Annotation:
The family of this 70-nucleotide sequence from Tenacibaculum sp. MAR_2010_89 is "DUF805 RNA". The family has 46 seed sequences and 281 matches in Rfam 15.1. The family's RNA type in Rfam is cis-regulatory element. Clan: DUF805 clan. Pairs were carried over by alignment from the consensus structure, which is taken from published work. NCBI's taxonomy places the organism under Bacteria, Flavobacteriia, Flavobacteriales, Flavobacteriaceae, Tenacibaculum.
RNA sequence: CAAAUGUAGAGUUCAGAAACUACUAUAAAAAACGAGGCGAAAUCUGAAAAGCCUUAUGAGUAGGAAUAAC
Dot-bracket structure: .....((((..........))))............(((....[[......))).........]]......